[Rfam]
RNA sequence: GCGCGUUCUCAGGGCGGGGUGAAAUUCCCCACCGGCGGUGACAGCCCGCGAGCGCUUUUCGAUGAAUGUCGAAAAGGACAAGCAGACACCGGUGGAAUUCCGGGGCCGACGGUCAAAGUCCGGAUGGAAGAGAACCAGC
Numbered sequence: 001g002c003g004c005g006u007u008c009u010c011a012g013g014g015c016g017g018g019g020u021g022a023a024a025u026u027c028c029c030c031a032c033c034g035g036c037g038g039u040g041a042c043a044g045c046c047c048g049c050g051a052g053c054g055c056u057u058u059u060c061g062a063u064g065a066a067u068g069u070c071g072a073a074a075a076g077g078a079c080a081a082g083c084a085g086a087c088a089c090c091g092g093u094g095g096a097a098u099u100c101c102g103g104g105g106c107c108g109a110c111g112g113u114c115a116a117a118g119u120c121c122g123g124a125u126g127g128a129a130g131a132g133a134a135c136c137a138g139c
Stems, first nucleotide, its partner, number of pairs: 005135006017029003031119002033108002035049004044106002052083002087104001089103004110122003
Rfam assigns this 139-nucleotide RNA from Primorskyibacter flagellatus to the family "FMN riboswitch aptamer (RFN element)". Its family is annotated with FMN binding in the Gene Ontology. From the family's description: The RFN element is a highly conserved domain that is found frequently in the 5'-untranslated regions of prokaryotic mRNAs that encode for flavin mononucleotide (FMN) biosynthesis and transport proteins. A search with the family's covariance model found it, with a score of 104 bits.